The family of this 143-nucleotide RNA sequence from Salmo trutta is "Small nucleolar RNA SNORA57". Rfam describes the family as follows. U99 belongs to the H/ACA class of snoRNAs which are thought to guide the sites of modification of uridines to pseudouridines, the target for this family is unknown. Lineage of the source: Eukaryota > Deuterostomia > Teleostomi > Salmonidae > Salmo. On this family, see Vitali et al., Nucleic Acids Res 2003: "Identification of 13 novel human modification guide RNAs". It scores 73 bits against the family's covariance model. By type it is an H/ACA-box small nucleolar RNA.
[Rfam]
Nucleotides: 143
Stems, first nucleotide, its partner, number of pairs: 001065001003063003015045005022038001024037003077135002080132002096117006
Number, partner (000 for none) and nucleotide at each position: 001065c002000g003063u004062c005061c006000a007000u008000u009000u010000c011000u012000u013000g014000a015045c016044a017043c018042g019041c020000u021000u022038g023000u024037a025036g026035u027000u028000g029000c030000u031000c032000a033000g034000u035026a036025c037024u038022c039000g040000u041019g042018u043017g044016u045015g046000u047000g048000u049000g050000u051000g052000u053000g054000a055000u056000u057000g058000u059000a060000c061005g062004g063003a064000g065001g066000u067000a068000g069000a070000a071000c072000a073000a074000a075000g076000c077135c078134a079000a080132u081131g082000c083000u084000a085000u086000g087000u088000c089000u090000u091000c092000g093000g094000u095000g096117c097116c098115a099114g100113u101112g102000u103000g104000a105000u106000a107000u108000u109000g110000u111000c112101u113100g114099c115098u116097g117096g118000u119000u120000c121000u122000a123000u124000c125000c126000u127000c128000a129000a130000u131081c132080g133000c134078u135077g136000g137000c138000a139000c140000a141000c142000u143000u